[Rfam]
RNA sequence: CCGCUAUCCGCUUAACGGUAAGGCCGUGUCGCGGAAGGUUUUCCUGCAUCGCAACGGGUGAGACACCCGGCAAGGUGAAGCA
Number, nucleotide and partner (000 for none) at each position: 001c000002c000003g081004c080005u000006a000007u035008c034009c033010g032011c031012u000013u000014a000015a000016c026017g025018g024019u023020a000021a000022g000023g019024c018025c017026g016027u000028g000029u000030c000031g011032c010033g009034g008035a007036a000037g044038g043039u000040u000041u000042u000043c038044c037045u000046g000047c077048a076049u075050c074051g000052c000053a000054a000055c069056g068057g067058g066059u065060g064061a000062g000063a000064c060065a059066c058067c057068c056069g055070g000071c000072a000073a000074g050075g049076u048077g047078a000079a000080g004081c003082a000
RNA: SucA RNA motif